Rfam assigns this 68-nucleotide sequence from Lingula anatina to the family "mir-2 microRNA precursor family".
The family's consensus secondary structure was predicted with PFOLD.
The organism belongs to Lingula, within Eukaryota.
On this family, see Ambros, Cell 2001: "microRNAs: tiny regulators with great potential".
Its family is annotated with miRNA-mediated post-transcriptional gene silencing and RISC complex in the Gene Ontology.
It scores 60 bits against the family's covariance model.
RNA sequence: CCCACCAUUAAAGUGGCUGUGAUGUGUUGAUUGUAUACUCAUAUCACAGCCUGCUUUGAUGAGAGGGA
Numbered sequence: 001c002c003c004a005c006c007a008u009u010a011a012a013g014u015g016g017c018u019g020u021g022a023u024g025u026g027u028u029g030a031u032u033g034u035a036u037a038c039u040c041a042u043a044u045c046a047c048a049g050c051c052u053g054c055u056u057u058g059a060u061g062a063g064a065g066g067g068a
Stems, first nucleotide, its partner, number of pairs: 006061008015051008025043003